[Rfam]
RNA sequence: GGGGAUCUUCGGAGCCCUUCACCGGACCCCGCCUUUCGGGGUCCCAGCUGUACGGAAGACAGGAA
Numbered sequence: 001g002g003g004g005a006u007c008u009u010c011g012g013a014g015c016c017c018u019u020c021a022c023c024g025g026a027c028c029c030c031g032c033c034u035u036u037c038g039g040g041g042u043c044c045c046a047g048c049u050g051u052a053c054g055g056a057a058g059a060c061a062g063g064a065a
Stems, first nucleotide, its partner, number of pairs: 001018004006014001008012001024044007
The record is a 65-nucleotide sequence from Falsirhodobacter algicola, which matches "L2-Alphaproteobacteria ribosomal protein leader" in Rfam. The base pairs follow the family's consensus structure, which is taken from published work. It is annotated as a cis-regulatory leader.